[Rfam]
RNA: Plastid-psbA-4 3UTR RNA
RNA sequence: AAAAUAAAGGAGCAAUGCCAAUACUCUUGAUAGAACAAGAAAUUGGUUAUUGCUCCUUUUA
Numbered sequence: 001a002a003a004a005u006a007a008a009g010g011a012g013c014a015a016u017g018c019c020a021a022u023a024c025u026c027u028u029g030a031u032a033g034a035a036c037a038a039g040a041a042a043u044u045g046g047u048u049a050u051u052g053c054u055c056c057u058u059u060u061a
Stems, first nucleotide, its partner, number of pairs: 006059012021044001025040005